[Rfam]
RNA sequence: AUGAUAGCAAGGGGAGAGAAUGGCAGAAUAUGUAUGUCAUCGCCGAAGGAGCAAAUGGGAAACCGUGAAUCUCUCAGGCAAAAAGACUUUUGCUUGACG
Numbered sequence: 001a002u003g004a005u006a007g008c009a010a011g012g013g014g015a016g017a018g019a020a021u022g023g024c025a026g027a028a029u030a031u032g033u034a035u036g037u038c039a040u041c042g043c044c045g046a047a048g049g050a051g052c053a054a055a056u057g058g059g060a061a062a063c064c065g066u067g068a069a070u071c072u073c074u075c076a077g078g079c080a081a082a083a084a085g086a087c088u089u090u091u092g093c094u095u096g097a098c099g
Stems, first nucleotide, its partner, number of pairs: 006094008020040006042079003045075002049073003055066002

Glycine riboswitch aptamer: a 99-nucleotide sequence from Salisediminibacterium beveridgei. A search with the family's covariance model found it, with a score of 66 bits.